[Rfam]
RNA sequence: CUCUUAUGCAGAGAGGUGGAGGGACUGGCCCUGUGAAGCCCGGCAACCUUUCAAUUUUCGAUUGAAAAGGUGCUAAAUCCUGCAAAGCUUCAGUGCUUUGAAAAAUAAGAG
Numbered sequence: 001c002u003c004u005u006a007u008g009c010a011g012a013g014a015g016g017u018g019g020a021g022g023g024a025c026u027g028g029c030c031c032u033g034u035g036a037a038g039c040c041c042g043g044c045a046a047c048c049u050u051u052c053a054a055u056u057u058u059c060g061a062u063u064g065a066a067a068a069g070g071u072g073c074u075a076a077a078u079c080c081u082g083c084a085a086a087g088c089u090u091c092a093g094u095g096c097u098u099u100g101a102a103a104a105a106u107a108a109g110a111g
Stems, first nucleotide, its partner, number of pairs: 001111007013041001015040003021031003025082001027080002042074004047070002050066004078103001083100006